[Rfam]
RNA sequence: UUCUUAUCCAGAGAAGCUGAGGGACUGGCCCAAUGAAGCUUCGGCAGCGGACGCAGGUACCGUGCCAAUUCCAGCAAGCUUUAAGCUUGAAAAGAUAAGAA
Numbered sequence: 001u002u003c004u005u006a007u008c009c010a011g012a013g014a015a016g017c018u019g020a021g022g023g024a025c026u027g028g029c030c031c032a033a034u035g036a037a038g039c040u041u042c043g044g045c046a047g048c049g050g051a052c053g054c055a056g057g058u059a060c061c062g063u064g065c066c067a068a069u070u071c072c073a074g075c076a077a078g079c080u081u082u083a084a085g086c087u088u089g090a091a092a093a094g095a096u097a098a099g100a101a
Stems, first nucleotide, its partner, number of pairs: 001101008013042005021031003025074004043066004048062002050058001052056001070093001075089006
Source information
Rfam assigns this 101-nucleotide RNA sequence from Peribacillus psychrosaccharolyticus to the family "SAM riboswitch aptamer (S box leader)". It scores 85 bits against the family's covariance model. The base pairs follow the family's consensus structure, which is taken from published work.